[Rfam]
RNA sequence: GUUGCAGAGCCAAUUUGGCAUUCUGUCCACCUCCAUGAAAUGUUCUUGUUAGUUAACUAGUUUGAUUUUCAGCUUUUGGAGGCGGCCAGCAUGUCAAAUUGGUUCUGUAAA
Numbered sequence: 001g002u003u004g005c006a007g008a009g010c011c012a013a014u015u016u017g018g019c020a021u022u023c024u025g026u027c028c029a030c031c032u033c034c035a036u037g038a039a040a041u042g043u044u045c046u047u048g049u050u051a052g053u054u055a056a057c058u059a060g061u062u063u064g065a066u067u068u069u070c071a072g073c074u075u076u077u078g079g080a081g082g083c084g085g086c087c088a089g090c091a092u093g094u095c096a097a098a099u100u101g102g103u104u105c106u107g108u109a110a111a
Base pairs, nucleotide, nucleotide: 011101015097016096017095018094019093020092024088025087027085028084030082031081032080033079034078
This 111-nucleotide sequence from Carya illinoinensis belongs to the Rfam family "MIR394 microRNA precursor family". Rfam links the family to the GO terms miRNA-mediated post-transcriptional gene silencing and RISC complex. The match comes from Rfam's covariance-model search (68 bits). The source organism's lineage runs through Eukaryota, Streptophyta, Streptophytina, Fagales and Carya.